Background:
A member of the RNA family "mir-455 microRNA precursor family" from Mus musculus, 80 nucleotides long. Rfam links the family to the GO terms cellular response to amino acid stimulus, male sex differentiation and sensory perception of sound. It is one of the family's seed sequences. The family's consensus secondary structure was predicted with RNAalifold. The source organism's lineage runs through Eukaryota, Metazoa, Muridae, Mus and Mus.

[Rfam]
RNA sequence: CCCUGGUGUGAGCGUAUGUGCCUUUGGACUACAUCGUGAACGCAGCACCAUGCAGUCCACGGGCAUAUACACUUGCCUCA
Numbered sequence: 001c002c003c004u005g006g007u008g009u010g011a012g013c014g015u016a017u018g019u020g021c022c023u024u025u026g027g028a029c030u031a032c033a034u035c036g037u038g039a040a041c042g043c044a045g046c047a048c049c050a051u052g053c054a055g056u057c058c059a060c061g062g063g064c065a066u067a068u069a070c071a072c073u074u075g076c077c078u079c080a
Stems, first nucleotide, its partner, number of pairs: 015069009025059006032052003036048003